[Rfam]
RNA sequence: UAACCUCUGACGAAGGUCGUGUAUGUUG
Numbered sequence: 001u002a003a004c005c006u007c008u009g010a011c012g013a014a015g016g017u018c019g020u021g022u023a024u025g026u027u028g
Stems, first nucleotide, its partner, number of pairs: 001028004008023001010020004

A member of the RNA family "L19-Flavobacteria ribosomal protein leader" from Allomuricauda sp., 28 nucleotides long. The source organism's lineage runs through Bacteria, Pseudomonadati, Bacteroidota, Flavobacteriia and Allomuricauda. It scores 42 bits against the family's covariance model.